The record is an 81-nucleotide sequence from Triticum aestivum, which matches "Plastid-rpl20 3UTR RNA" in Rfam. A reference for the family is Richter et al. (2023), "Retrograde signaling in plants: A critical review focusing on the GUN pathway and beyond", Plant Commun. The match comes from Rfam's covariance-model search (74 bits). The family's consensus secondary structure was predicted with LocARNA. Rfam's curators write: Plastid rpl20 is a non-coding RNA (ncRNA) recognised in plastids. It was found in the three prime untranslated region (3UTR) of rpl20 gene, it presence in the 3UTR region sugest a role in transcript maduration. Lineage of the source: Eukaryota > Spermatophyta > Liliopsida > Triticeae > Triticum.

[Rfam]
Nucleotides: 081
Stems, first nucleotide, its partner, number of pairs: 007030009064076003
Number, partner (000 for none) and nucleotide at each position: 001000g002000a003000u004000g005000a006000a007030u008029u009028c010027c011026u012025g013024g014023a015022g016000a017000g018000g019000g020000a021000a022015c023014u024013c025012u026011g027010g028009g029008a030007a031000g032000a033000u034000a035000c036000a037000a038000u039000a040000a041000a042000u043000u044000a045000a046000g047000a048000u049000u050000a051000a052000g053000u054000g055000g056000u057000a058000g059000g060000a061000a062000u063000c064076a065075a066074u067000g068000a069000g070000c071000u072000g073000g074066a075065u076064u077000a078000c079000u080000u081000u